[Rfam]
RNA sequence: UUGAUAGUACCGAAAGGACUAUACGCUUUUUUAUGAAACUUACCGAUGAACAAACUCUGCUCGGAGCGAAAUGCCAGGGACGGAAAU
Number, nucleotide and partner (000 for none) at each position: 001u000002u025003g024004a022005u021006a020007g019008u018009a000010c017011c016012g000013a000014a000015a000016g011017g010018a008019c007020u006021a005022u004023a000024c003025g002026c000027u000028u000029u000030u000031u000032u000033a000034u000035g000036a000037a000038a000039c000040u000041u000042a000043c000044c000045g000046a000047u000048g000049a000050a000051c000052a000053a000054a000055c000056u000057c083058u082059g081060c079061u078062c077063g000064g075065a000066g074067c073068g000069a000070a000071a000072u000073g067074c066075c064076a000077g062078g061079g060080a000081c059082g058083g057084a000085a000086a000087u000